[Rfam]
RNA sequence: GGUACUAACCACAAAUCUAAUCAAAACGCAAAUUUUGUGUUUAAAUGGUUAGUCCAGCCCACUUUUUUCAAGUAAACGUUAUUUUGGUGACAAUACGUCGGGAUGCUAGGCCAGUUCCAACCUCUAUUGUUCGGCAUUAAACAGCCAAAGAGAUUUGAAAAGCUAGUGUGCCGAACGUAAAAAGUUUAAAUAACCGGGCGAGGCCAACUUUAC
Numbered sequence: 001g002g003u004a005c006u007a008a009c010c011a012c013a014a015a016u017c018u019a020a021u022c023a024a025a026a027c028g029c030a031a032a033u034u035u036u037g038u039g040u041u042u043a044a045a046u047g048g049u050u051a052g053u054c055c056a057g058c059c060c061a062c063u064u065u066u067u068u069c070a071a072g073u074a075a076a077c078g079u080u081a082u083u084u085u086g087g088u089g090a091c092a093a094u095a096c097g098u099c100g101g102g103a104u105g106c107u108a109g110g111c112c113a114g115u116u117c118c119a120a121c122c123u124c125u126a127u128u129g130u131u132c133g134g135c136a137u138u139a140a141a142c143a144g145c146c147a148a149a150g151a152g153a154u155u156u157g158a159a160a161a162g163c164u165a166g167u168g169u170g171c172c173g174a175a176c177g178u179a180a181a182a183a184g185u186u187u188a189a190a191u192a193a194c195c196g197g198g199c200g201a202g203g204c205c206a207a208c209u210u211u212a213c
Stems, first nucleotide, its partner, number of pairs: 001054001004053005010039002013036002018031001040045001057199004063074001065072002078194007086186003093127002097121002100118005105209001107207001109205004129176009141167002144163002146157004
RNA: HNH endonuclease-associated RNA and ORF (HEARO) RNA
Organism: Okeania hirsuta